RNA sequence: GAUAGAACUAUCUCGACGGAGAGAAAAGCAGAUAGCCUUACUGCCCGUUCUAUCAAACCUCGUUAUCAUAAGGC
Numbered sequence: 001g002a003u004a005g006a007a008c009u010a011u012c013u014c015g016a017c018g019g020a021g022a023g024a025a026a027a028g029c030a031g032a033u034a035g036c037c038u039u040a041c042u043g044c045c046c047g048u049u050c051u052a053u054c055a056a057a058c059c060u061c062g063u064u065a066u067c068a069u070a071a072g073g074c
Stems, first nucleotide, its partner, number of pairs: 001054008011022004028044004035074006
Rfam assigns this 74-nucleotide RNA from Providencia rettgeri to the family "int-alpA RNA". The family's RNA type in Rfam is small RNA. The base pairs follow the family's consensus structure, which is taken from published work. Rfam's curators write: Acidobacteria (1 example), Planctomycetes (1 example), Proteobacteria.